[Rfam]
RNA: MIR5084 microRNA precursor family
RNA sequence: UGGAGGGUUAGGAUCCUCUGCAGUACUGUACGAUGUUGUACAGUCACUGCCAUGUGGGACCUGGUCCCACAUGUCAUCGACACAACAGCACCGUACGGUACUGCAGAGGAUUUCAACCCUCG
Numbered sequence: 001u002g003g004a005g006g007g008u009u010a011g012g013a014u015c016c017u018c019u020g021c022a023g024u025a026c027u028g029u030a031c032g033a034u035g036u037u038g039u040a041c042a043g044u045c046a047c048u049g050c051c052a053u054g055u056g057g058g059a060c061c062u063g064g065u066c067c068c069a070c071a072u073g074u075c076a077u078c079g080a081c082a083c084a085a086c087a088g089c090a091c092c093g094u095a096c097g098g099u100a101c102u103g104c105a106g107a108g109g110a111u112u113u114c115a116a117c118c119c120u121c122g
Stems, first nucleotide, its partner, number of pairs: 003121007011113022034090006051073010